[Rfam]
RNA sequence: GGAUGGACUAGGUCGGGCAGUUAGGCCCUGCUCCACCGCCCGCACUACGGUCUUCAGCGGGGACCGAACCCGGGUGCGUCCGGUCAGACCGAUCCGGGCCCCGGAAGCCAACGUGGAAGCCUCGUCCUGCGGGGACAGCGGCCCACGGCGCGCGUCUGCAGGGACGCUCCGUCGUGGUUCGUCGGCGGUACCGGGUCAGGCGCGGAAGCGAGCAGCCCGUCGCCGGACGCCCGUCGCUCGGAGGAUCGCGGGGUGGAGGAGGCGACCGGGACUCCCCGGGCCGGAACGCCGGGCAAUCCCGCCGUCCACAU
Number, nucleotide and partner (000 for none) at each position: 001g311002g000003a000004u308005g307006g306007a305008c304009u000010a000011g065012g064013u063014c062015g034016g033017g031018c030019a029020g028021u000022u000023a000024g000025g000026c000027c000028c020029u019030g018031c017032u000033c016034c015035a000036c000037c000038g000039c061040c060041c059042g058043c057044a000045c000046u000047a000048c000049g000050g000051u000052c000053u000054u000055c000056a000057g043058c042059g041060g040061g039062g014063a013064c012065c011066g000067a000068a000069c000070c000071c301072g300073g299074g298075u000076g000077c000078g294079u293080c292081c291082g289083g000084u000085c000086a000087g000088a000089c284090c283091g282092a000093u280094c279095c278096g277097g276098g275099c000100c270101c269102c268103g267104g266105a000106a000107g263108c262109c261110a000111a000112c258113g000114u256115g000116g000117a000118a000119g254120c253121c252122u251123c250124g249125u248126c244127c243128u242129g000130c240131g239132g238133g237134g235135a234136c233137a000138g231139c229140g228141g179142c000143c177144c176145a175146c174147g173148g172149c171150g170151c000152g167153c166154g165155u164156c163157u162158g000159c000160a000161g000162g157163g156164a155165c154166g153167c152168u000169c000170c150171g149172u148173c147174g146175u145176g144177g143178u000179u141180c000181g000182u226183c225184g224185g223186c222187g221188g220189u000190a000191c000192c219193g218194g217195g216196u215197c000198a000199g000200g000201c210202g209203c208204g000205g000206a000207a000208g203209c202210g201211a000212g000213c000214a000215g196216c195217c194218c193219g192220u188221c187222g186223c185224c184225g183226g182227a000228c140229g139230c000231c138232c000233g136234u135235c134236g000237c133238u132239c131240g130241g000242a128243g127244g126245a000246u000247c000248g125249c124250g123251g122252g121253g120254u119255g000256g114257a000258g112259g000260a000261g109262g108263c107264g000265a000266c104267c103268g102269g101270g100271a000272c000273u000274c000275c098276c097277c096278g095279g094280g093281c000282c091283g090284g089285a000286a000287c000288g000289c082290c000291g081292g080293g079294c078295a000296a000297u000298c074299c073300c072301g071302c000303c000304g008305u007306c006307c005308a004309c000310a000311u001